[Rfam]
The family of this 80-nucleotide RNA sequence from Oryzias latipes is "mir-199 microRNA precursor family". For this family Rfam cites "microRNAs: tiny regulators with great potential" (Ambros, Cell, 2001). NCBI's taxonomy places the organism under Eukaryota, Neopterygii, Clupeocephala, Beloniformes, Oryzias.
RNA sequence: GCUCCGUCCACCCAGUGUUCAGACUACCUGUUCAUUGUCAUACUGGUGUACAGUAGUCUGCACAUUGGUUAGACUGGGCC
Numbered sequence: 001g002c003u004c005c006g007u008c009c010a011c012c013c014a015g016u017g018u019u020c021a022g023a024c025u026a027c028c029u030g031u032u033c034a035u036u037g038u039c040a041u042a043c044u045g046g047u048g049u050a051c052a053g054u055a056g057u058c059u060g061c062a063c064a065u066u067g068g069u070u071a072g073a074c075u076g077g078g079c080c
Base pairs, nucleotide, nucleotide: 012068013067014066015065016064017063018062020060021059022058023057024056025055026054028053029052030051031050033048034047
Rfam's curators write: This family consists of the microRNA (miRNA) precursor mir-199 which appears to be specific to humans. Animal miRNAs are transcribed as ~70nt precursors and subsequently processed by the Dicer enzyme to give a ~22nt product. In this case the mature sequence comes from the 3' arm of the precursor.